[Rfam]
RNA sequence: UCCGCUUCGCUUUCACCGGUGACUUUAGUGUGCAGUAGACAACUAAGGCACGCGGUGAAUGCCAAGCGUG
Number, nucleotide and partner (000 for none) at each position: 001u000002c000003c068004g067005c066006u065007u000008c000009g062010c061011u000012u059013u058014c057015a056016c055017c000018g000019g053020u052021g051022a000023c048024u047025u046026u045027a044028g043029u042030g000031u000032g000033c000034a000035g000036u000037a000038g000039a000040c000041a000042a029043c028044u027045a026046a025047g024048g023049c000050a000051c021052g020053c019054g000055g016056u015057g014058a013059a012060u000061g010062c009063c000064a000065a006066g005067c004068g003069u000070g000
This 70-nucleotide sequence from Auanema sp. JU1783 belongs to the Rfam family "mir-124 microRNA precursor family". Rfam links the family to the GO terms miRNA-mediated post-transcriptional gene silencing and RISC complex. Rfam 15.1 lists 2,215 matches to the family in 905 species. On this family, see Lim et al., Genes Dev 2003: "The microRNAs of Caenorhabditis elegans".